RNA sequence: UGAGCAGGUUAGAUGGUCGCGAGCUUCGGCUCGAGGAAAGUCCGAGCUCCACAGGGCAGGGUGCUGGGUAAUACCCAGUGAGGGUGACCUCAAGGACAGUGCAACAGAGAUAUACCGCCCCGGUGGGAAGUGCGAGGUGUGAGGCAAGAGGUGGGAACACCAAAAACUUCGACACCCAACAUCCCCGGGGUAAGGGUGGAAAGGUGAGGUAAGAGCUCACCAGCGGAAUGGCGACUUUCCGGCUAUGUAAACCCCACCCGGAGCAAGACCAAAUAGAGGAGCAAUUGCGGUGGCCCGCCGCGCUCCCGGGUAAGGUCGCUAGAGGUGUCAGGCAACUGGCAUCCGAGAUAGAUGACCAUCCACGACAGAACUCGGCUUACAGACCUGCUCGUUAA
Numbered sequence: 001u002g003a004g005c006a007g008g009u010u011a012g013a014u015g016g017u018c019g020c021g022a023g024c025u026u027c028g029g030c031u032c033g034a035g036g037a038a039a040g041u042c043c044g045a046g047c048u049c050c051a052c053a054g055g056g057c058a059g060g061g062u063g064c065u066g067g068g069u070a071a072u073a074c075c076c077a078g079u080g081a082g083g084g085u086g087a088c089c090u091c092a093a094g095g096a097c098a099g100u101g102c103a104a105c106a107g108a109g110a111u112a113u114a115c116c117g118c119c120c121c122g123g124u125g126g127g128a129a130g131u132g133c134g135a136g137g138u139g140u141g142a143g144g145c146a147a148g149a150g151g152u153g154g155g156a157a158c159a160c161c162a163a164a165a166a167c168u169u170c171g172a173c174a175c176c177c178a179a180c181a182u183c184c185c186c187g188g189g190g191u192a193a194g195g196g197u198g199g200a201a202a203g204g205u206g207a208g209g210u211a212a213g214a215g216c217u218c219a220c221c222a223g224c225g226g227a228a229u230g231g232c233g234a235c236u237u238u239c240c241g242g243c244u245a246u247g248u249a250a251a252c253c254c255c256a257c258c259c260g261g262a263g264c265a266a267g268a269c270c271a272a273a274u275a276g277a278g279g280a281g282c283a284a285u286u287g288c289g290g291u292g293g294c295c296c297g298c299c300g301c302g303c304u305c306c307c308g309g310g311u312a313a314g315g316u317c318g319c320u321a322g323a324g325g326u327g328u329c330a331g332g333c334a335a336c337u338g339g340c341a342u343c344c345g346a347g348a349u350a351g352a353u354g355a356c357c358a359u360c361c362a363c364g365a366c367a368g369a370a371c372u373c374g375g376c377u378u379a380c381a382g383a384c385c386u387g388c389u390c391g392u393u394a395a
Stems, first nucleotide, its partner, number of pairs: 001391010012360007020033005038378003042375005047263004054296004059259005064078005079093001080091004094254002099252002101248003115195002117191007125183001203221006223243001224241005230235001267317004278306005287301005324343008
This 395-nucleotide sequence from Thermoanaerobacteraceae bacterium SP2 belongs to the Rfam family "Bacterial RNase P class A". The family's RNA type in Rfam is ribozyme. A search with the family's covariance model found it, with a score of 308 bits. The organism belongs to Thermoanaerobacteraceae, within Bacteria.